Rfam assigns this 315-nucleotide sequence from Pyrococcus furiosus to the family "Archaeal signal recognition particle RNA". Rfam's curators put it in the seed alignment. The literature on the family includes a 2001 paper in J Mol Biol by Batey et al., "Structural and energetic analysis of RNA recognition by a universally conserved protein from the signal recognition particle".
RNA sequence: CGGCGGGCUAGGCCGGGGGGUUCGGCGUCCCCUGUAACCGGAAACCGCCGAUAUGCCGGGGCCGAAGCCCGGGGGGCGGUUCCCAAAGCCGCUCCCAGAAGCCGAGGUCGAACGAUGAGUCCUCGUCCCGCGGGGUGCCCGGUGGGGGAGGCACGGCUGAAGGGCCGUGCUAACCCCCUUUGGGCCCCGAACCCCGCAAGGCCCGGAAGGGAGCAGCGGUAGGGGCCACGGAGCACGCUCGCGGGGGUGCGGGGAUGAGAUAGGCCUCGGUGGAUGGGAGCGGUGGAGGGUUCCCACCCUCGGGCGUGCCCGCCG
Numbered sequence: 001c002g003g004c005g006g007g008c009u010a011g012g013c014c015g016g017g018g019g020g021u022u023c024g025g026c027g028u029c030c031c032c033u034g035u036a037a038c039c040g041g042a043a044a045c046c047g048c049c050g051a052u053a054u055g056c057c058g059g060g061g062c063c064g065a066a067g068c069c070c071g072g073g074g075g076g077c078g079g080u081u082c083c084c085a086a087a088g089c090c091g092c093u094c095c096c097a098g099a100a101g102c103c104g105a106g107g108u109c110g111a112a113c114g115a116u117g118a119g120u121c122c123u124c125g126u127c128c129c130g131c132g133g134g135g136u137g138c139c140c141g142g143u144g145g146g147g148g149a150g151g152c153a154c155g156g157c158u159g160a161a162g163g164g165c166c167g168u169g170c171u172a173a174c175c176c177c178c179u180u181u182g183g184g185c186c187c188c189g190a191a192c193c194c195c196g197c198a199a200g201g202c203c204c205g206g207a208a209g210g211g212a213g214c215a216g217c218g219g220u221a222g223g224g225g226c227c228a229c230g231g232a233g234c235a236c237g238c239u240c241g242c243g244g245g246g247g248u249g250c251g252g253g254g255a256u257g258a259g260a261u262a263g264g265c266c267u268c269g270g271u272g273g274a275u276g277g278g279a280g281c282g283g284u285g286g287a288g289g290g291u292u293c294c295c296a297c298c299c300u301c302g303g304g305c306g307u308g309c310c311c312g313c314c315g
Base pairs, nucleotide, nucleotide: 001315002314003313004312005311006310007309008308011063012062013061014060015033016032017031018030019029020028021027038059039058040057041056043054067305068304069303070302071301072300073299074298075297078294079293082289083288088284089283090282091281092280093279094278095277096276097275101271102270103269104268105267106266107265108264109263111261113259119256120255121254122253123252124251125250126249127245128244129243130242131241132240133239134238135236136235137234138233139231140230141229142180144178145177146176147175148174150171151170152169153168154167155166156165157164158163183227184226185225186224187223188222194219195218196217197216202211203210204209